[Rfam]
RNA sequence: UUUUGAUUGCAGUGGCAAUAUCGUAAUUAAUGAAGUUCUACUGAUACGAUUAUUCCUAAUUGAAAACAAUACCACUUGACGACAGCUCGUUAACAUCAUUCCUACCAUAUUAAUCCACAUAUUUGGCAAUCAUAAUUGA
Numbered sequence: 001u002u003u004u005g006a007u008u009g010c011a012g013u014g015g016c017a018a019u020a021u022c023g024u025a026a027u028u029a030a031u032g033a034a035g036u037u038c039u040a041c042u043g044a045u046a047c048g049a050u051u052a053u054u055c056c057u058a059a060u061u062g063a064a065a066a067c068a069a070u071a072c073c074a075c076u077u078g079a080c081g082a083c084a085g086c087u088c089g090u091u092a093a094c095a096u097c098a099u100u101c102c103u104a105c106c107a108u109a110u111u112a113a114u115c116c117a118c119a120u121a122u123u124u125g126g127c128a129a130u131c132a133u134a135a136u137u138g139a
Stems, first nucleotide, its partner, number of pairs: 020050005026045001034042003087117001089115001090113004095108002099104001130139003
RNA: U4 spliceosomal RNA
Organism: Cimex lectularius